[Rfam]
RNA sequence: UUAAGAUGGAAACUAAAUUAAUGAAGUUUAUAUUUAAUAAUGUUUCCAAUAACUAGUCGCCGACUAGAUAGAGAGGCAAUACAUGUU
Dot-bracket structure: .......((((((...((.((.....)).))..........))))))........(((.(...((....)).).)))..........
Rfam assigns this 87-nucleotide RNA from Eubacterium sp. CAG:156 to the family "GA-cis RNA". Pairs were carried over by alignment from the consensus structure, which is taken from published work. The match comes from Rfam's covariance-model search (43 bits). By type it is a small RNA.